A member of the RNA family "MIR2275 microRNA precursor family" from Phoenix dactylifera, 87 nucleotides long. It scores 70 bits against the family's covariance model. Pairs were carried over by alignment from the consensus structure, which was predicted with RNAalifold. Gene Ontology terms of the family: RISC complex and miRNA-mediated post-transcriptional gene silencing. The organism belongs to Phoenix, within Eukaryota.
RNA sequence: GCUCUGAACGUGAGAAUUGGUGGAAAUCAAAUCCAUUCGUGUUUGCUUCGGUGGGUUUGAUUUCCUCCAAUAUCUCACCUUCAGCUG
Numbered sequence: 001g002c003u004c005u006g007a008a009c010g011u012g013a014g015a016a017u018u019g020g021u022g023g024a025a026a027u028c029a030a031a032u033c034c035a036u037u038c039g040u041g042u043u044u045g046c047u048u049c050g051g052u053g054g055g056u057u058u059g060a061u062u063u064c065c066u067c068c069a070a071u072a073u074c075u076c077a078c079c080u081u082c083a084g085c086u087g
Stems, first nucleotide, its partner, number of pairs: 004084005011077004016071005023064008032055002